[Rfam]
RNA: Nematode sRNA ceN72-3_ceN74-2
Organism: Musca domestica
RNA sequence: GGGGUCGGAAUUUUUUUCUAUAGAAAAAACUUAACCGUCCCUUGGGUGUCGGAAUUUUUUCCUAUAGAAAAAACUUAACCGUUCCUUGGGGGUCGGAAUUUUUUUCUAUAGAAAAAAACUUAACCGUCCC
Numbered sequence: 001g002g003g004g005u006c007g008g009a010a011u012u013u014u015u016u017u018c019u020a021u022a023g024a025a026a027a028a029a030c031u032u033a034a035c036c037g038u039c040c041c042u043u044g045g046g047u048g049u050c051g052g053a054a055u056u057u058u059u060u061c062c063u064a065u066a067g068a069a070a071a072a073a074c075u076u077a078a079c080c081g082u083u084c085c086u087u088g089g090g091g092g093u094c095g096g097a098a099u100u101u102u103u104u105u106c107u108a109u110a111g112a113a114a115a116a117a118a119c120u121u122a123a124c125c126g127u128c129c130c
Base pairs, nucleotide, nucleotide: 002130003129004128006126007125008124011122013116014115016113017112018111019110020109021108022107023106024105035052036051037050039048041046058070059069060068061067079096080095081094083092084091